[Rfam]
RNA: Fluoride riboswitch aptamer (crcB RNA motif)
RNA sequence: AAUCGAAUAGGCGAUGGAGUUCGCCAUAACCGCCGGCUUCCGGCUGAUGACUCCUGCUGCAAA
Numbered sequence: 001a002a003u004c005g006a007a008u009a010g011g012c013g014a015u016g017g018a019g020u021u022c023g024c025c026a027u028a029a030c031c032g033c034c035g036g037c038u039u040c041c042g043g044c045u046g047a048u049g050a051c052u053c054c055u056g057c058u059g060c061a062a063a
Stems, first nucleotide, its partner, number of pairs: 010025004016054006032044004